The record is a 94-nucleotide RNA sequence from Paenibacillus nanensis, which matches "c-di-GMP-I riboswitch aptamer" in Rfam. Taxonomically the source falls in Paenibacillus (Bacteria, Bacillati, Bacillota, Caryophanales).
RNA sequence: AACCGAAAAAGGCAAAAUUACUGAAAGGUAAUGACGCAAAACUAUAGGGGCUAAAGUACUGAAUGAUUCUUUACUAUGCCAGCCAGUUGCCGAU
Numbered sequence: 001a002a003c004c005g006a007a008a009a010a011g012g013c014a015a016a017a018u019u020a021c022u023g024a025a026a027g028g029u030a031a032u033g034a035c036g037c038a039a040a041a042c043u044a045u046a047g048g049g050g051c052u053a054a055a056g057u058a059c060u061g062a063a064u065g066a067u068u069c070u071u072u073a074c075u076a077u078g079c080c081a082g083c084c085a086g087u088u089g090c091c092g093a094u
Base pairs, nucleotide, nucleotide: 012037013036017032018031019030020029021028022027040088041087042086043085047084048083049080050079051078056074057073058072
GEMM was predicted in a large-scale screen for bacterial structured RNA regulatory elements. Pairs were carried over by alignment from the consensus structure, which is taken from published work.